Shown here is a 90-nucleotide RNA from Thiopseudomonas denitrificans, a member of the family "SAH (S-adenosyl-L-homocysteine) riboswitch aptamer". On this family, see Wang et al., Mol Cell 2008: "Riboswitches that sense S-adenosylhomocysteine and activate genes involved in coenzyme recycling". The organism belongs to Thiopseudomonas, within Bacteria.

RNA sequence: UUGCACGAGGGGCGCUGCAGCAGGUUCUCUGUCAGGCUCGUGCGAUGUCCCUGCGGUUUCCCGCACUCUUUGCAACGGCGCCCGUUCGAC
Numbered sequence: 001u002u003g004c005a006c007g008a009g010g011g012g013c014g015c016u017g018c019a020g021c022a023g024g025u026u027c028u029c030u031g032u033c034a035g036g037c038u039c040g041u042g043c044g045a046u047g048u049c050c051c052u053g054c055g056g057u058u059u060c061c062c063g064c065a066c067u068c069u070u071u072g073c074a075a076c077g078g079c080g081c082c083c084g085u086u087c088g089a090c
Base pairs, nucleotide, nucleotide: 002044003043004042005041006040007039008038021031022030023029
Dot-bracket structure: .(((((((............(((.....)))......)))))))..............................................